[Rfam]
RNA sequence: GAGGCCGAGAGGCGCUGCGACGGACCAGCUGGUCCGCCACGCUCGGCCUUCGCCAGACGAACGUACAAGGGCGCCUCCGAAUC
Numbered sequence: 001g002a003g004g005c006c007g008a009g010a011g012g013c014g015c016u017g018c019g020a021c022g023g024a025c026c027a028g029c030u031g032g033u034c035c036g037c038c039a040c041g042c043u044c045g046g047c048c049u050u051c052g053c054c055a056g057a058c059g060a061a062c063g064u065a066c067a068a069g070g071g072c073g074c075c076u077c078c079g080a081a082u083c
Stems, first nucleotide, its partner, number of pairs: 002049007021036006

Shown here is an 83-nucleotide RNA sequence from Amycolatopsis sp. YIM 10, a member of the family "SAH (S-adenosyl-L-homocysteine) riboswitch aptamer".
The match comes from Rfam's covariance-model search (39 bits).
The family has 52 seed sequences and 1,354 matches in Rfam 15.1.